[Rfam]
RNA sequence: CGGGGACCCGAGCAGACUCCCCGCCCUUCAAGAGGCGCCCCGCCUCCAAGUUCUGC
Numbered sequence: 001c002g003g004g005g006a007c008c009c010g011a012g013c014a015g016a017c018u019c020c021c022c023g024c025c026c027u028u029c030a031a032g033a034g035g036c037g038c039c040c041c042g043c044c045u046c047c048a049a050g051u052u053c054u055g056c
Stems, first nucleotide, its partner, number of pairs: 001023006012056005032046005
chrB-b RNA: a 56-nucleotide sequence from Ramlibacter humi. Taxonomically the source falls in Ramlibacter (Bacteria, Betaproteobacteria, Burkholderiales, Comamonadaceae).